The record is an 85-nucleotide RNA sequence from Silurus meridionalis, which matches "Small nucleolar RNA SNORD35" in Rfam. Lineage of the source: Eukaryota > Clupeocephala > Otophysi > Siluridae > Silurus. Rfam links the family to the GO terms nucleolus and RNA processing. Clan: SNORD35 clan. A search with the family's covariance model found it, with a score of 69 bits. The literature on the family includes a 1996 paper in J Mol Biol by Nicoloso et al., "Intron-encoded, antisense small nucleolar RNAs: the characterization of nine novel species points to their direct role as guides for the 2'-O-ribose methylation of rRNAs". Rfam describes the family as follows. U35 is a C/D box snoRNA located in intron 6 of ribosomal protein L13A and intron 3 of ribosomal protein S11 in humans and at homologous positions in mouse and chicken ribosomal protein genes.

RNA sequence: UGCAAAUGAUGUCUUUUCUCACGAUGGUCUUCCAAGCCUUUGAGGCUCUGACGACAACGCCUAAUGGCUUUGCUGAUGCGGCUCU
Numbered sequence: 001u002g003c004a005a006a007u008g009a010u011g012u013c014u015u016u017u018c019u020c021a022c023g024a025u026g027g028u029c030u031u032c033c034a035a036g037c038c039u040u041u042g043a044g045g046c047u048c049u050g051a052c053g054a055c056a057a058c059g060c061c062u063a064a065u066g067g068c069u070u071u072g073c074u075g076a077u078g079c080g081g082c083u084c085u
Stems, first nucleotide, its partner, number of pairs: 001080004
Dot-bracket structure: ((((........................................................................)))).....